eL15-Euryarchaeota ribosomal protein leader: a 73-nucleotide RNA.
Rfam's curators put it in the seed alignment.
Rfam classes the family as a cis-regulatory leader.
A reference for the family is Eckert and Weinberg (2020), "Discovery of 20 novel ribosomal leader candidates in bacteria and archaea", BMC Microbiol.
Pairs were carried over by alignment from the consensus structure, which is taken from published work.
RNA sequence: CUCGCCGCCAGACGGGCGUAACAGCCCGCUCGGGACGAGACGACAUGUGGCCGGAGACCGGCCGAAUCGCAAG
Numbered sequence: 001c002u003c004g005c006c007g008c009c010a011g012a013c014g015g016g017c018g019u020a021a022c023a024g025c026c027c028g029c030u031c032g033g034g035a036c037g038a039g040a041c042g043a044c045a046u047g048u049g050g051c052c053g054g055a056g057a058c059c060g061g062c063c064g065a066a067u068c069g070c071a072a073g
Stems, first nucleotide, its partner, number of pairs: 001039004041069003049063005